[Rfam]
RNA sequence: GGAGUUGGCCAGACAAUCGCCGUUCAGUUUUCAUUCUUGAAUUUCUGAAGGGAGGAAAGUCCGGGCUCCAUAGGGCAGGGUGCCAGGUAACGCCUGGGCGGCGCGAGCCGACGACAAGUGCAGCAGAGAGAAGACCGCCAGUUUGUUAUUCGUAAUAAAUCGGUAAGGGUGAAAGGGUGCGGUAAGAGCGCACCGCGUUGCUGGCAACAGUAUACGGCAAGGUAAACUCCACCCGGAGCAAGACCAAAUAGGAUCUCGUAUGGCGUGGCCCACGUUGAGAUCGGGUGUGUUGCUGGAGCCAGUGAGCGAUUGCUGGCCUAGAUGAAUGAUUGUCGCUGUUUGUUUUCGAACAAACUUCACAAAACCCGGCUUAUCGGCCAACUCCAACU
Numbered sequence: 001g002g003a004g005u006u007g008g009c010c011a012g013a014c015a016a017u018c019g020c021c022g023u024u025c026a027g028u029u030u031u032c033a034u035u036c037u038u039g040a041a042u043u044u045c046u047g048a049a050g051g052g053a054g055g056a057a058a059g060u061c062c063g064g065g066c067u068c069c070a071u072a073g074g075g076c077a078g079g080g081u082g083c084c085a086g087g088u089a090a091c092g093c094c095u096g097g098g099c100g101g102c103g104c105g106a107g108c109c110g111a112c113g114a115c116a117a118g119u120g121c122a123g124c125a126g127a128g129a130g131a132a133g134a135c136c137g138c139c140a141g142u143u144u145g146u147u148a149u150u151c152g153u154a155a156u157a158a159a160u161c162g163g164u165a166a167g168g169g170u171g172a173a174a175g176g177g178u179g180c181g182g183u184a185a186g187a188g189c190g191c192a193c194c195g196c197g198u199u200g201c202u203g204g205c206a207a208c209a210g211u212a213u214a215c216g217g218c219a220a221g222g223u224a225a226a227c228u229c230c231a232c233c234c235g236g237a238g239c240a241a242g243a244c245c246a247a248a249u250a251g252g253a254u255c256u257c258g259u260a261u262g263g264c265g266u267g268g269c270c271c272a273c274g275u276u277g278a279g280a281u282c283g284g285g286u287g288u289g290u291u292g293c294u295g296g297a298g299c300c301a302g303u304g305a306g307c308g309a310u311u312g313c314u315g316g317c318c319u320a321g322a323u324g325a326a327u328g329a330u331u332g333u334c335g336c337u338g339u340u341u342g343u344u345u346u347c348g349a350a351c352a353a354a355c356u357u358c359a360c361a362a363a364a365c366c367c368g369g370c371u372u373a374u375c376g377g378c379c380a381a382c383u384c385c386a387a388c389u
Stems, first nucleotide, its partner, number of pairs: 001385010011374001012334007020052002023049005057372003061369005066238004073271004078234005083097005098112001099110004113229002118227002120223002135168002137164003141160008176194006195218001196216003199212005242291003252282006262276005298317008

Shown here is a 389-nucleotide sequence from Paraglaciecola psychrophila, a member of the family "Bacterial RNase P class A". A search with the family's covariance model found it, with a score of 329 bits. Rfam links the family to the GO terms ribonuclease P activity, dimeric ribonuclease P complex and tRNA processing. NCBI's taxonomy places the organism under Bacteria, Pseudomonadati, Pseudomonadota, Gammaproteobacteria, Paraglaciecola psychrophila.